[Rfam]
RNA sequence: UCUUUUUGAUCGCUUAAUUUCACAUCUUCAAUGUGAAAGCGGGGGACCCAUCUAUCGGGGUGAAUCUUACGAAUGUAAGAGGGGAUACUUCCAUUCCUAAUCCGACAGCUAACCUCGUAAGCGUCAUACGAAGGAAGG
Dot-bracket structure: ..........((((...((((((((.....))))))))((((((....(.......)(((.....((((......))))..((((........))))...))).........)))))).))))...............
c-di-AMP riboswitch aptamer (ydaO/yuaA leader): a 138-nucleotide RNA sequence from Fictibacillus macauensis.